[Rfam]
RNA: Small nucleolar RNA SNORD127
RNA sequence: UGGCAACGAUGAUGACCUGAGUUGUAACUGUAUGUGGUGUCCCAUUACUGCAUGGAGACAACAGUCCCUCUAAACUGAUGUUGCCA
Numbered sequence: 001u002g003g004c005a006a007c008g009a010u011g012a013u014g015a016c017c018u019g020a021g022u023u024g025u026a027a028c029u030g031u032a033u034g035u036g037g038u039g040u041c042c043c044a045u046u047a048c049u050g051c052a053u054g055g056a057g058a059c060a061a062c063a064g065u066c067c068c069u070c071u072a073a074a075c076u077g078a079u080g081u082u083g084c085c086a
Stems, first nucleotide, its partner, number of pairs: 001086007